[Rfam]
RNA: Small nucleolar RNA SNORD2
RNA sequence: UAGCAUAAUGAUGUUUUACCAUCUUUCGGGGCAUAUCAUUGCUGAUGAUAAUUAUUUAAUGCUGAAUGCUA
Numbered sequence: 001u002a003g004c005a006u007a008a009u010g011a012u013g014u015u016u017u018a019c020c021a022u023c024u025u026u027c028g029g030g031g032c033a034u035a036u037c038a039u040u041g042c043u044g045a046u047g048a049u050a051a052u053u054a055u056u057u058a059a060u061g062c063u064g065a066a067u068g069c070u071a
Stems, first nucleotide, its partner, number of pairs: 001071006